The family of this 55-nucleotide sequence from Streptocarpus teitensis is "Plastid-ccsA-ndhD-1 3UTR RNA". The family's consensus secondary structure was predicted with LocARNA. Plastid-ccsA-ndhD-1 is a non-coding RNA (ncRNA) recognised in plastids. The literature on the family includes a 2023 paper in Plant Commun by Richter et al., "Retrograde signaling in plants: A critical review focusing on the GUN pathway and beyond". NCBI's taxonomy places the organism under Eukaryota, Streptophyta, Streptophytina, Trichosporeae, Streptocarpus sect. Saintpaulia. Clan: Plastid-ccsA_ndhD 3UTR RNA clan. The sequence is in the family's curated seed alignment.
RNA sequence: UGAACAGGUGAGAACCCUGUGAAUUUAAUAAUGUAGUGAUUCACAGGGUUCUCAC
Numbered sequence: 001u002g003a004a005c006a007g008g009u010g011a012g013a014a015c016c017c018u019g020u021g022a023a024u025u026u027a028a029u030a031a032u033g034u035a036g037u038g039a040u041u042c043a044c045a046g047g048g049u050u051c052u053c054a055c
Base pairs, nucleotide, nucleotide: 008055009054010053011052012051013050014049015048016047017046018045019044020043021042022041023040024039025038031037